[Rfam]
This 69-nucleotide RNA sequence from Operophtera brumata belongs to the Rfam family "mir-11 microRNA precursor family". The literature on the family includes a 2010 paper in Funct Integr Genomics by Cai et al., "Novel microRNAs in silkworm (Bombyx mori)".
RNA sequence: CUUCGCAUCUAGUACUCUGGCUGUGAUUUGUGUGUCGAUCACAUCACAGUCUGAGUUCUAGCUGUGCGG
Numbered sequence: 001c002u003u004c005g006c007a008u009c010u011a012g013u014a015c016u017c018u019g020g021c022u023g024u025g026a027u028u029u030g031u032g033u034g035u036c037g038a039u040c041a042c043a044u045c046a047c048a049g050u051c052u053g054a055g056u057u058c059u060a061g062c063u064g065u066g067c068g069g
Base pairs, nucleotide, nucleotide: 004066005065006064009061010060011059012058014056015055016054017053021049022048023047024046025045026044030042031041032040